Annotation:
Shown here is a 156-nucleotide sequence from Breoghania sp. L-A4, a member of the family "6S / SsrS RNA". From the family's description: E. coli 6S RNA was the first non coding RNA to be sequenced, but its function was unknown until recently. It consists of 184 nucleotides that fold into an extended hairpin structure with a large single-stranded internal bulge. The 6S RNA specifically associates with RNA polymerase holoenzyme containing the sigma70 specificity factor. This interaction represses expression from a sigma70-dependent promoter during stationary phase. 6S RNA homologs have recently been identified in most bacterial genomes. Many Gram-positive species have two copies of 6S RNA. In Bacillus subtilis, both copies appear to interact with RNA polymerase holoenzyme containing the housekeeping sigma factor and be expressed during different stages of growth. In many proteobacteria, 6S RNA may be processed from a transcript encoding homologs of the E. coli YgfA protein which is a putative 5-formyltetrahydrofolate cycloligase activity. On this family, see Wassarman and Storz, Cell 2000: "6S RNA regulates E. coli RNA polymerase activity".
[Rfam]
RNA sequence: GCGUCGCUGCGCGGUGCGUUUGAGACACAAUCCCCGGGGCCUUAAUGAUCCCCACGGGAGCUGUUCCUGACCGGGCCCGUGGGCCCGGACACACGGCGCCCACCUACGUUGUAGGUUCCCGGGAUCACAACCUCGGACGGCCGAGGCGGCUUCGCC
Numbered sequence: 001g002c003g004u005c006g007c008u009g010c011g012c013g014g015u016g017c018g019u020u021u022g023a024g025a026c027a028c029a030a031u032c033c034c035c036g037g038g039g040c041c042u043u044a045a046u047g048a049u050c051c052c053c054a055c056g057g058g059a060g061c062u063g064u065u066c067c068u069g070a071c072c073g074g075g076c077c078c079g080u081g082g083g084c085c086c087g088g089a090c091a092c093a094c095g096g097c098g099c100c101c102a103c104c105u106a107c108g109u110u111g112u113a114g115g116u117u118c119c120c121g122g123g124a125u126c127a128c129a130a131c132c133u134c135g136g137a138c139g140g141c142c143g144a145g146g147c148g149g150c151u152u153c154g155c156c
Stems, first nucleotide, its partner, number of pairs: 002154002006150005012143004017139003031124004036119006056101003060097005071088005
It scores 76 bits against the family's covariance model.